[Rfam]
RNA sequence: GACCGGUCUCUACCUGACCGGUCUCUACCUGACCGGACUCUACCUGACCGGACUCUACCUGACCGGUCAGGUAGAGACCGGUCAGGUAGAGUCCGGUCAGGUAGAGACCGGUCUCUA
Numbered sequence: 001g002a003c004c005g006g007u008c009u010c011u012a013c014c015u016g017a018c019c020g021g022u023c024u025c026u027a028c029c030u031g032a033c034c035g036g037a038c039u040c041u042a043c044c045u046g047a048c049c050g051g052a053c054u055c056u057a058c059c060u061g062a063c064c065g066g067u068c069a070g071g072u073a074g075a076g077a078c079c080g081g082u083c084a085g086g087u088a089g090a091g092u093c094c095g096g097u098c099a100g101g102u103a104g105a106g107a108c109c110g111g112u113c114u115c116u117a
Base pairs, nucleotide, nucleotide: 010104011103012102013101014100015099016098020094021093023091024090025089026088027087028086029085030084031083032082033081034080035079036078038076039075040074041073042072043071044070045069046068047067048066049065050064
Shown here is a 117-nucleotide RNA from Dissostichus mawsoni, a member of the family "mraW RNA". The base pairs follow the family's consensus structure, which is taken from published work. It is annotated as a cis-regulatory element. The source organism's lineage runs through Eukaryota, Teleostei, Eurypterygia, Euacanthomorphacea and Dissostichus.